[Rfam]
About this RNA
Bacterial large subunit ribosomal RNA: a 233-nucleotide part of an RNA from uncultured bacterium OMZ60_11L23. Rfam's curators put it in the seed alignment. Pairs were carried over by alignment from the consensus structure, which is taken from published work. Rfam links the family to the GO terms ribosome and structural constituent of ribosome.
RNA sequence: GAGUUGUUGUUUGUUGCAGGUUAAGCCUAUAAUGGGUGAAGCCAAAGCGAAAGCGAGUGCUAACUGCGCGAAUAAAUGUAGCAGAUAGCAGACCCGAAACCGAGUGAUCUACCCUUGGUCAGGAUGAAGUUCCGGUAAAACGGAAUGGAGGUCCGAACGCAUUUACGUUGAAAAGUGAUGCGAUGAACUGAGGGGAGGAGUAAAAGUCUAAUCAAACUCGGAGAUAGCUGGUU
Numbered sequence: 001g002a003g004u005u006g007u008u009g010u011u012u013g014u015u016g017c018a019g020g021u022u023a024a025g026c027c028u029a030u031a032a033u034g035g036g037u038g039a040a041g042c043c044a045a046a047g048c049g050a051a052a053g054c055g056a057g058u059g060c061u062a063a064c065u066g067c068g069c070g071a072a073u074a075a076a077u078g079u080a081g082c083a084g085a086u087a088g089c090a091g092a093c094c095c096g097a098a099a100c101c102g103a104g105u106g107a108u109c110u111a112c113c114c115u116u117g118g119u120c121a122g123g124a125u126g127a128a129g130u131u132c133c134g135g136u137a138a139a140a141c142g143g144a145a146u147g148g149a150g151g152u153c154c155g156a157a158c159g160c161a162u163u164u165a166c167g168u169u170g171a172a173a174a175g176u177g178a179u180g181c182g183a184u185g186a187a188c189u190g191a192g193g194g195g196a197g198g199a200g201u202a203a204a205a206g207u208c209u210a211a212u213c214a215a216a217c218u219c220g221g222a223g224a225u226a227g228c229u230g231g232u233u
Stems, first nucleotide, its partner, number of pairs: 005090013019043004025037003047054002057069004093231002096228001100221006109197002112194008120185001122154004129146006158182003163178004199209002